Overview:
This 89-nucleotide sequence from Microcaecilia unicolor belongs to the Rfam family "mir-160 microRNA precursor family". Pairs were carried over by alignment from the consensus structure, which was predicted with PFOLD. The family has 7 seed sequences and 1,502 matches in Rfam 15.1.
[Rfam]
RNA sequence: AAAUGUAUAGCUACACGCACACCAUCAGUGUAUCAAUUGCUUUGUCUAAUUGAUACUCACACUGAUGGUGUGCGUGUAGCUAUACAUUU
Numbered sequence: 001a002a003a004u005g006u007a008u009a010g011c012u013a014c015a016c017g018c019a020c021a022c023c024a025u026c027a028g029u030g031u032a033u034c035a036a037u038u039g040c041u042u043u044g045u046c047u048a049a050u051u052g053a054u055a056c057u058c059a060c061a062c063u064g065a066u067g068g069u070g071u072g073c074g075u076g077u078a079g080c081u082a083u084a085c086a087u088u089u
Stems, first nucleotide, its partner, number of pairs: 001089006008082007016074009027063003